[Rfam]
RNA sequence: GAAUGCAGCUGUUAAUGUGCACGGCUAGCAUUUUCUAUCAAUAGCACAUUCAUGGAGUAACUAAACGAUGGCAUUAAGCGUCGAAAAGAAAGCAGAAAUUGUCAAAGAAUACGGUCAAAGCGAA
Numbered sequence: 001g002a003a004u005g006c007a008g009c010u011g012u013u014a015a016u017g018u019g020c021a022c023g024g025c026u027a028g029c030a031u032u033u034u035c036u037a038u039c040a041a042u043a044g045c046a047c048a049u050u051c052a053u054g055g056a057g058u059a060a061c062u063a064a065a066c067g068a069u070g071g072c073a074u075u076a077a078g079c080g081u082c083g084a085a086a087a088g089a090a091a092g093c094a095g096a097a098a099u100u101g102u103c104a105a106a107g108a109a110u111a112c113g114g115u116c117a118a119a120g121c122g123a124a
Stems, first nucleotide, its partner, number of pairs: 007026006051078001053076003057072001
Dot-bracket structure: ......((((((........))))))........................(.(((.(..............).))).)..............................................